[Rfam]
RNA sequence: UCGAAGCUCCAUCUACAAAUGGAUUAAAACUUUGGUCUUAUUGUAAUUAUAUAGAAGUUUCUGAACUAAAAAAAUGAGCAAUAAUGCCCUAUUGAUAAAAUAAGAGGGAAACUAUUGCUCCUUU
Numbered sequence: 001u002c003g004a005a006g007c008u009c010c011a012u013c014u015a016c017a018a019a020u021g022g023a024u025u026a027a028a029a030c031u032u033u034g035g036u037c038u039u040a041u042u043g044u045a046a047u048u049a050u051a052u053a054g055a056a057g058u059u060u061c062u063g064a065a066c067u068a069a070a071a072a073a074a075u076g077a078g079c080a081a082u083a084a085u086g087c088c089c090u091a092u093u094g095a096u097a098a099a100a101u102a103a104g105a106g107g108g109a110a111a112c113u114a115u116u117g118c119u120c121c122u123u124u
Stems, first nucleotide, its partner, number of pairs: 008023005072124003076120008085110001087108001089106002092103002
The record is a 124-nucleotide sequence from Lactuca sativa, which matches "Plastid-psbA-1 3UTR RNA" in Rfam.
The family's consensus secondary structure was predicted with LocARNA.
Rfam describes the family as follows. Plastid psbA-1 is a non-coding RNA (ncRNA) present in plastids. It was identified in inverted repeat sequences in the 3 prime untranslate region (3UTR) of photosystem II quinone-binding protein (psbA).
The source organism's lineage runs through Eukaryota, Embryophyta, Magnoliopsida, eudicotyledons and Lactuca.
The literature on the family includes a 2023 paper in Plant Commun by Richter et al., "Retrograde signaling in plants: A critical review focusing on the GUN pathway and beyond".